[Rfam]
RNA sequence: GGCCGCCUGAGGGGAAGGUGCCCUCAGUACGAGAGGAACGGGGCGCCCCGGCCUCUGGUGUACCGGUUGUCCGGCAGGGCAGAGCCGGGCAGCUACGCCGGAAGGGGUAACCGCUGAAAGCAUCUAAGCGGGAACCCCACCCCGAAAAGAGGCGGCCAUUGAGGGCUCCCGUAGAAGACGGGGUUGAUGGGGCGGGGGUGUAAGCCCCGAGGGGUUUCCCGAGGGGCGAGCCCGCCGCUCCCAAUCGCCCGAGGC
Numbered sequence: 001g002g003c004c005g006c007c008u009g010a011g012g013g014g015a016a017g018g019u020g021c022c023c024u025c026a027g028u029a030c031g032a033g034a035g036g037a038a039c040g041g042g043g044c045g046c047c048c049c050g051g052c053c054u055c056u057g058g059u060g061u062a063c064c065g066g067u068u069g070u071c072c073g074g075c076a077g078g079g080c081a082g083a084g085c086c087g088g089g090c091a092g093c094u095a096c097g098c099c100g101g102a103a104g105g106g107g108u109a110a111c112c113g114c115u116g117a118a119a120g121c122a123u124c125u126a127a128g129c130g131g132g133a134a135c136c137c138c139a140c141c142c143c144g145a146a147a148a149g150a151g152g153c154g155g156c157c158a159u160u161g162a163g164g165g166c167u168c169c170c171g172u173a174g175a176a177g178a179c180g181g182g183g184u185u186g187a188u189g190g191g192g193c194g195g196g197g198g199u200g201u202a203a204g205c206c207c208c209g210a211g212g213g214g215u216u217u218c219c220c221g222a223g224g225g226g227c228g229a230g231c232c233c234g235c236c237g238c239u240c241c242c243a244a245u246c247g248c249c250c251g252a253g254g255c
Stems, first nucleotide, its partner, number of pairs: 001157008011143004017047008048101005056095003063088005068081005104138003111131005163250004167183005188243003191239005196233003201228001204227005211220001